[Rfam]
RNA sequence: AAACGCGGAAAUAAAAACACAGCCCGGUCGGUAGUCCGGGCGCGGCCUGUGGGCCGUCAGUAACCUGCCUCCUUGGUUGUCCGUUUUCCGUGGGAAACAU
Dot-bracket structure: ...((((((((..........((((((........))))))((((((....)))))).........(((.....))).......))))))))........